[Rfam]
Rfam assigns this 191-nucleotide sequence from Gordonia iterans to the family "c-di-AMP riboswitch aptamer (ydaO/yuaA leader)".
RNA sequence: CCACCGGGGACACCGAACCAGACAGUUCAGGAACGAGGGCGGGGGACCCACCAUCCACCGGAUACCGGCGCAGGUCGUCAGGCCUGCGCCUUGGGGUUUAGUCCGGCCGGCGGACGCAAGUCCGCCGACGGGCCGAGCACCUCUCGCUCGAACCCGACAGCUUACUUCGCAGGCGCGUGGAGAGAGGAAGC
Dot-bracket structure: ..........(.((...((.................))((((((....((.........................................))(((.....((((.......................))))..((((.......))))...))).........)))))).)).)................

The base pairs follow the family's consensus structure. Taxonomically the source falls in Gordonia (Bacteria, Bacillati, Mycobacteriales, Gordoniaceae).